[Rfam]
RNA sequence: GGGGCACACUUAGAACCCCGCGAGCGAUGGUGUUAAUAGUCAUGCGUUUGGCCGCGCAGACGGUUAGUGAAUC
Numbered sequence: 001g002g003g004g005c006a007c008a009c010u011u012a013g014a015a016c017c018c019c020g021c022g023a024g025c026g027a028u029g030g031u032g033u034u035a036a037u038a039g040u041c042a043u044g045c046g047u048u049u050g051g052c053c054g055c056g057c058a059g060a061c062g063g064u065u066a067g068u069g070a071a072u073c
Stems, first nucleotide, its partner, number of pairs: 001019004033067005039061003043058005
Description
L13-Bacteroidia ribosomal protein leader: a 73-nucleotide sequence. A reference for the family is Eckert and Weinberg (2020), "Discovery of 20 novel ribosomal leader candidates in bacteria and archaea", BMC Microbiol. The base pairs follow the family's consensus structure, which is taken from published work. It is one of the family's seed sequences.